[Rfam]
RNA sequence: CGCGUAUUUUGCCCAGGCGGAGCCCGACCACCGGUUCAAGCCAUGACGGCAUUCAUCGACGCGCAUCGCGAUGUUUACGGGUUCGAGCCGAUCUGCAAAGUGCUGCCGAUCGCCCCG
Numbered sequence: 001c002g003c004g005u006a007u008u009u010u011g012c013c014c015a016g017g018c019g020g021a022g023c024c025c026g027a028c029c030a031c032c033g034g035u036u037c038a039a040g041c042c043a044u045g046a047c048g049g050c051a052u053u054c055a056u057c058g059a060c061g062c063g064c065a066u067c068g069c070g071a072u073g074u075u076u077a078c079g080g081g082u083u084c085g086a087g088c089c090g091a092u093c094u095g096c097a098a099a100g101u102g103c104u105g106c107c108g109a110u111c112g113c114c115c116c117g
Stems, first nucleotide, its partner, number of pairs: 016032002019029002078117004089112002092109002095106003
RNA: ALIL pseudoknot